[Rfam]
RNA sequence: AUUGUAAAUUAAGCGCCAGAACUUGAGAAUGAUGGAAAAAAAUAAGCUGUUUGCUAAUUUCUCAAGUUGACGAGGACAAGGAGUAUCGAAAUUUCGGCGGAUACCUUGCGGUAGGGCACUACCGGAAAUAUUGACAAAUCCAGAAAGUGAUUUUUGGGACAAAGCAAUAAGGUGCCUGAAA
Numbered sequence: 001a002u003u004g005u006a007a008a009u010u011a012a013g014c015g016c017c018a019g020a021a022c023u024u025g026a027g028a029a030u031g032a033u034g035g036a037a038a039a040a041a042a043u044a045a046g047c048u049g050u051u052u053g054c055u056a057a058u059u060u061c062u063c064a065a066g067u068u069g070a071c072g073a074g075g076a077c078a079a080g081g082a083g084u085a086u087c088g089a090a091a092u093u094u095c096g097g098c099g100g101a102u103a104c105c106u107u108g109c110g111g112u113a114g115g116g117c118a119c120u121a122c123c124g125g126a127a128a129u130a131u132u133g134a135c136a137a138a139u140c141c142a143g144a145a146a147g148u149g150a151u152u153u154u155u156g157g158g159a160c161a162a163a164g165c166a167a168u169a170a171g172g173u174g175c176c177u178g179a180a181a
Base pairs, nucleotide, nucleotide: 020068021067022066023065024064025063026062027061029059077108078107079106080105081104086097087096088095089094109124110123111122112121113120114119129169130168131167132166133165140157141156142155143154144153145152146151
Dot-bracket structure: ...................((((((((.(.............................).))))))))........(((((....((((....))))......)))))((((((....))))))....(((((......(((((((....))))))).......)))))............
glmS glucosamine-6-phosphate activated ribozyme aptamer: a 181-nucleotide sequence from Clostridium pasteurianum. Pairs were carried over by alignment from the consensus structure, which is taken from published work. Its family is annotated with regulation of gene expression and catalytic activity in the Gene Ontology. From the family's description: This entry contains a glucosamine-6-phosphate activated ribozyme that is found in the mRNA for GlmS. GlmS is an enzyme that uses fructose-6-phosphate and glutamine to generate glucosamine-6-phosphate. The family's RNA type in Rfam is riboswitch.